A member of the RNA family "Alpha operon ribosome binding site" from Thalassotalea algicola, 110 nucleotides long. The match comes from Rfam's covariance-model search (81 bits). The bacterial alpha operon ribosome binding site is surrounded by this complex pseudoknotted structure. Its family is annotated with ribosome binding in the Gene Ontology.
RNA sequence: CAAAAAAGAGUCAGGUUGAGUAUCCUAACGGGCUUUUCAACCUGUUGUUAUUAAUAUUUAAUAUAGGAGAUGUGUUAGUGGCCCGUAUCGCUGGCAUUAACAUCCCUGAU
Numbered sequence: 001c002a003a004a005a006a007a008g009a010g011u012c013a014g015g016u017u018g019a020g021u022a023u024c025c026u027a028a029c030g031g032g033c034u035u036u037u038c039a040a041c042c043u044g045u046u047g048u049u050a051u052u053a054a055u056a057u058u059u060a061a062u063a064u065a066g067g068a069g070a071u072g073u074g075u076u077a078g079u080g081g082c083c084c085g086u087a088u089c090g091c092u093g094g095c096a097u098u099a100a101c102a103u104c105c106c107u108g109a110u
Base pairs, nucleotide, nucleotide: 004055007052008051010049012047013046024094025093029085030084031083032082037109038108039107

By type it is a cis-regulatory element. NCBI's taxonomy places the organism under Bacteria, Pseudomonadati, Pseudomonadota, Gammaproteobacteria, Thalassotalea. On this family, see Schlax et al., J Biol Chem 2001: "Translational repression of the Escherichia coli alpha operon mRNA: importance of an mRNA conformational switch and a ternary entrapment complex".